[Rfam]
RNA sequence: GAUCAAUCUACGCUUAAUUUUCGACGUUCGCGUCGGAAAGCGGGGGAACCAGUCAAUUGGGGCGAAUCCGCCGGCUUCAUCGCCGGCCGUAGGGUACCAUCUACCCGAGUCCGUCAGCUAACCUCGUCAGCGGAAGAUGGGUCAGCG
Numbered sequence: 001g002a003u004c005a006a007u008c009u010a011c012g013c014u015u016a017a018u019u020u021u022c023g024a025c026g027u028u029c030g031c032g033u034c035g036g037a038a039a040g041c042g043g044g045g046g047a048a049c050c051a052g053u054c055a056a057u058u059g060g061g062g063c064g065a066a067u068c069c070g071c072c073g074g075c076u077u078c079a080u081c082g083c084c085g086g087c088c089g090u091a092g093g094g095u096a097c098c099a100u101c102u103a104c105c106c107g108a109g110u111c112c113g114u115c116a117g118c119u120a121a122c123c124u125c126g127u128c129a130g131c132g133g134a135a136g137a138u139g140g141g142u143c144a145g146c147g
Stems, first nucleotide, its partner, number of pairs: 011132004018039009040127006050059002060112003068089001070087005092106004
Annotation
This 147-nucleotide RNA sequence from Cohnella xylanilytica belongs to the Rfam family "c-di-AMP riboswitch aptamer (ydaO/yuaA leader)". Rfam describes the family as follows. This family represents a conserved RNA structure found upstream of the ydaO and yuaA genes in Bacillus subtilis and related genes in other bacteria.